[Rfam]
RNA sequence: GUGCCUUAAACUAAUGAGUAAGGAAAAUAUAGAGCUUUGGUAACGCUUAGCUAUGCUGAUUAUUUAAGCGACCAUAUUUUUGAAGGGGCAAAGGUCGUCCCGUGGCAUCGCGAACUACUUUUUCGCGUGCCUGGUGAAAGCGAUCUACCUC
Numbered sequence: 001g002u003g004c005c006u007u008a009a010a011c012u013a014a015u016g017a018g019u020a021a022g023g024a025a026a027a028u029a030u031a032g033a034g035c036u037u038u039g040g041u042a043a044c045g046c047u048u049a050g051c052u053a054u055g056c057u058g059a060u061u062a063u064u065u066a067a068g069c070g071a072c073c074a075u076a077u078u079u080u081u082g083a084a085g086g087g088g089c090a091a092a093g094g095u096c097g098u099c100c101c102g103u104g105g106c107a108u109c110g111c112g113a114a115c116u117a118c119u120u121u122u123u124c125g126c127g128u129g130c131c132u133g134g135u136g137a138a139a140g141c142g143a144u145c146u147a148c149c150u151c
Base pairs, nucleotide, nucleotide: 004023005022006021007020008019033052034051035050036049039046054070055069056068057067085151086150087149088148092146093145094144095143096142097141098140101134104131105130106129107128110126111125112124113123114122